[Rfam]
RNA sequence: CAUUAGAUGACUGAAAGCAAGUACUGGUCUCUUAAACCAUUUUAUAGUAAAUUAGCAUUUACUUCUAAUGA
Number, nucleotide and partner (000 for none) at each position: 001c070002a069003u068004u067005a066006g065007a064008u000009g000010a022011c021012u020013g000014a000015a000016a000017g000018c000019a000020a012021g011022u010023a000024c000025u039026g038027g037028u036029c000030u000031c000032u000033u000034a000035a000036a028037c027038c026039a025040u000041u000042u000043u000044a000045u000046a063047g062048u061049a060050a059051a000052u000053u000054a000055g000056c000057a000058u000059u050060u049061a048062c047063u046064u007065c006066u005067a004068a003069u002070g001071a000
Rfam assigns this 71-nucleotide sequence from Actias ningpoana to the family "tRNA".
Gene Ontology term of the family: triplet codon-amino acid adaptor activity.
Its Rfam clan is "tRNA clan".
Taxonomically the source falls in Actias (Eukaryota, Protostomia, Aparaglossata, Lepidoptera).
It is annotated as a transfer RNA.
The sequence is in the family's curated seed alignment.
The family's consensus secondary structure is taken from published work.
A reference for the family is Hou (1993), "The tertiary structure of tRNA and the development of the genetic code", Trends Biochem Sci.